Shown here is a 77-nucleotide RNA sequence from Myotis lucifugus, a member of the family "mir-9229 microRNA precursor family". The base pairs follow the family's consensus structure, which was predicted with RNAalifold. Taxonomically the source falls in Myotis (Eukaryota, Euteleostomi, Sarcopterygii, Yangochiroptera). The family has 7 seed sequences and 27,225 matches in Rfam 15.1.
RNA sequence: UGGAAACCCCCUCCGGGGCAAGACUUGCUUCAGUGGGGUUUUGGUGCUCACUGAGUCUGCCCCCUGAGUGUGUCCUU
Numbered sequence: 001u002g003g004a005a006a007c008c009c010c011c012u013c014c015g016g017g018g019c020a021a022g023a024c025u026u027g028c029u030u031c032a033g034u035g036g037g038g039u040u041u042u043g044g045u046g047c048u049c050a051c052u053g054a055g056u057c058u059g060c061c062c063c064c065u066g067a068g069u070g071u072g073u074c075c076u077u
Stems, first nucleotide, its partner, number of pairs: 002075003006071002009068001011066001015063006022057003030054008038045002